[Rfam]
RNA sequence: GCGGUACCGGUUCACGUCCGCGGCGCGCAGCGCCGCAGGCGACCCGGCGACC
Numbered sequence: 001g002c003g004g005u006a007c008c009g010g011u012u013c014a015c016g017u018c019c020g021c022g023g024c025g026c027g028c029a030g031c032g033c034c035g036c037a038g039g040c041g042a043c044c045c046g047g048c049g050a051c052c
Stems, first nucleotide, its partner, number of pairs: 003052003007047004015041004020036007
Dot-bracket structure: ..(((.((((....((((.(((((((...))))))).))))..))))..)))
L31-Actinobacteria ribosomal protein leader: a 52-nucleotide RNA sequence. By type it is a cis-regulatory leader.